This 97-nucleotide RNA sequence from Papaver somniferum belongs to the Rfam family "Small nucleolar RNA R30/Z108". Its Rfam clan is "SNORD100 clan". The literature on the family includes a 2002 paper in Curr Biol by Marker et al., "Experimental RNomics. Identification of 140 Candidates for Small Non-Messenger RNAs in the Plant Arabidopsis thaliana". Its family is annotated with RNA processing and nucleolus in the Gene Ontology.

RNA sequence: AAGGAUUGCAAUUAGGAUACAAGCUCCCUCUUCUGAAUUAAGCUGAGGACACUUGCUGGCUGAAUCGAACCUAAUUAUAAUCGCCACUACUGAGUAA
Dot-bracket structure: .....((((....................................................................................))))

Lineage of the source: Eukaryota > Streptophyta > Embryophyta > Papaveroideae > Papaver. Rfam classes the family as a C/D-box small nucleolar RNA. Rfam's curators write: snoR30 is a C/D box small nucleolar RNA which acts as a methylation guide for 18S ribosomal RNA in plants.